[Rfam]
RNA sequence: GCCGAGCUUAGUAACGUGAGCUUGUAACCUAAGUAGGGGCAACAUUGUGAUUGGACAUGUGGCUUGACCGUUCAGCUGGGCCGGAGUUAGCGAUUAAUUGGCCCGCCCGGUCCAAGUGGUGUGUUGGUCCAUGUGACUCGGGCGAAGGCUUGGGUUGCGUGGUCCGUAGAGCGGAGGGCAACGCGCCAGGCUGGUCACAGAGCAGCGAUAACUUCCCGCUCACUGCAGUGGAAGGAUUACGGGCCAGUGCUUCUUCGGCCCACUUAAGCUGACUGGGCUAGCCUCAUUGAACAAUCACUUUU
Numbered sequence: 001g002c003c004g005a006g007c008u009u010a011g012u013a014a015c016g017u018g019a020g021c022u023u024g025u026a027a028c029c030u031a032a033g034u035a036g037g038g039g040c041a042a043c044a045u046u047g048u049g050a051u052u053g054g055a056c057a058u059g060u061g062g063c064u065u066g067a068c069c070g071u072u073c074a075g076c077u078g079g080g081c082c083g084g085a086g087u088u089a090g091c092g093a094u095u096a097a098u099u100g101g102c103c104c105g106c107c108c109g110g111u112c113c114a115a116g117u118g119g120u121g122u123g124u125u126g127g128u129c130c131a132u133g134u135g136a137c138u139c140g141g142g143c144g145a146a147g148g149c150u151u152g153g154g155u156u157g158c159g160u161g162g163u164c165c166g167u168a169g170a171g172c173g174g175a176g177g178g179c180a181a182c183g184c185g186c187c188a189g190g191c192u193g194g195u196c197a198c199a200g201a202g203c204a205g206c207g208a209u210a211a212c213u214u215c216c217c218g219c220u221c222a223c224u225g226c227a228g229u230g231g232a233a234g235g236a237u238u239a240c241g242g243g244c245c246a247g248u249g250c251u252u253c254u255u256c257g258g259c260c261c262a263c264u265u266a267a268g269c270u271g272a273c274u275g276g277g278c279u280a281g282c283c284u285c286a287u288u289g290a291a292c293a294a295u296c297a298c299u300u301u302u
Base pairs, nucleotide, nucleotide: 001040002039003038004023005022006021007020008019009018010017028037029036030035044301047298048297049296050295051294052293053292056289057288058286059285061283062282063281064280066278068276069275070274072272073271074270075269076268077267078261079260080259081258082257083256084255085254086253089251090250093248098247099246100245101244102243103242104241105240107235108234111232112231113230114229116226117225118224119223120222121221123219124218126165127164129162130161131160132159133158134157135156136155137154138153139152140151141150142149143148173216174215175214176213177212184207185206186205191200192199193198
The record is a 302-nucleotide sequence, which matches "Plant signal recognition particle RNA" in Rfam. The literature on the family includes a 2001 paper in J Mol Biol by Batey et al., "Structural and energetic analysis of RNA recognition by a universally conserved protein from the signal recognition particle".